[Rfam]
RNA sequence: GAAAUUGUCGUCCUCCGCCGCCAGCAGGGCGUCGAUGAAGUCCUGCGGAAUCUCGGCGAACCGGAUGGGGCUGCGGCGCAUUUCACCGAAUUCGGCAAUGAGUUUGGCGUCGGCGCUGUAGACGCGCAGGGGAACCUGCAUGCGCACGUUGCGCAGGGUUUCCACCGAGGGCAGGUUCGGGCUGAGAUACAGGAAGGUGCCGCUCAGGCCGAGCAGCACGGCGCAGAACAGGGCGACACAGGUCCACGACAAAAGCUUCAAGAGGCGCAUCGGAAGUCUUGCUUGUCCGGAGGAU
Dot-bracket structure: .........((((((.(..(...(((((((.........)))))))(((((..((.((..((......))...)).)).))))).(((....))).....((((((.(((......(((((...(.....)....))))).....))).....)).)))).)..).))))))...((((((..(.((.........(((((..(.((.....(...(.(..(........).).)...)...(..........)..)).)...)))))..........))..)..))))))....
Notes: The record is a 295-nucleotide RNA from Pseudomonas oryzae, which matches "anti ponA RNA" in Rfam. The source organism's lineage runs through Bacteria, Pseudomonadota, Gammaproteobacteria, Pseudomonadaceae and Pseudomonas. Rfam's curators write: Transcribed antisense to the penicillin-binding protein 1A gene called ponA. It was identified by RNAseq and the expression was validated by 5' and 3' RACE experiments. Rfam links the family to the GO term response to antibiotic. The family's consensus secondary structure was predicted with RNAfold. On this family, see Gomez-Lozano et al., BMC Genomics 2014: "Expression of antisense small RNAs in response to stress in Pseudomonas aeruginosa".